[Rfam]
RNA sequence: GCGGGUUUGAUAUGUCUGGUAUUCUUGGGUUGUGAUUAUUGUUCAACCAGUAUGCCCGACGUAUCCAAAUCCUC
Numbered sequence: 001g002c003g004g005g006u007u008u009g010a011u012a013u014g015u016c017u018g019g020u021a022u023u024c025u026u027g028g029g030u031u032g033u034g035a036u037u038a039u040u041g042u043u044c045a046a047c048c049a050g051u052a053u054g055c056c057c058g059a060c061g062u063a064u065c066c067a068a069a070u071c072c073u074c
Stems, first nucleotide, its partner, number of pairs: 009065008018056005028048004
Notes: This 74-nucleotide sequence from Panagrolaimus sp. JU765 belongs to the Rfam family "mir-50 microRNA precursor family". The organism belongs to Panagrolaimus, within Eukaryota. Its Rfam clan is "mir-50 clan".